mir-31 microRNA precursor family: an 81-nucleotide sequence from Vespula pensylvanica. The family has 75 seed sequences and 1,181 matches in Rfam 15.1. Taxonomically the source falls in Vespula (Eukaryota, Opisthokonta, Bilateria, Dicondylia). Its Rfam clan is "mir-31 microRNA precursor family".

RNA sequence: GGGCGCCUGGAAGGCAAGAUGUCGGCAUAGCUGAUGAAAUUCGAUAUUCGGCUGUGUCACAUCCAGCCAGCCAGCCGAACG
Numbered sequence: 001g002g003g004c005g006c007c008u009g010g011a012a013g014g015c016a017a018g019a020u021g022u023c024g025g026c027a028u029a030g031c032u033g034a035u036g037a038a039a040u041u042c043g044a045u046a047u048u049c050g051g052c053u054g055u056g057u058c059a060c061a062u063c064c065a066g067c068c069a070g071c072c073a074g075c076c077g078a079a080c081g
Stems, first nucleotide, its partner, number of pairs: 005076001007074004013068003018063004024058008